RNA sequence: GCAGAUGUAGCUCAGUGGUAGAGCGCAACCUUGCCAAGGUUGAUGCCAUGGGUUCGAGUCCCAUUAUCUGCU
Numbered sequence: 001g002c003a004g005a006u007g008u009a010g011c012u013c014a015g016u017g018g019u020a021g022a023g024c025g026c027a028a029c030c031u032u033g034c035c036a037a038g039g040u041u042g043a044u045g046c047c048a049u050g051g052g053u054u055c056g057a058g059u060c061c062c063a064u065u066a067u068c069u070g071c072u
Base pairs, nucleotide, nucleotide: 001071002070003069004068005067006066007065010024011023012022013021026042027041028040029039030038048064049063050062051061052060
About this RNA: tRNA: a 72-nucleotide RNA sequence from Euglena gracilis. Rfam classes the family as a transfer RNA. NCBI's taxonomy places the organism under Eukaryota, Euglenozoa, Euglenida, Euglenaceae, Euglena.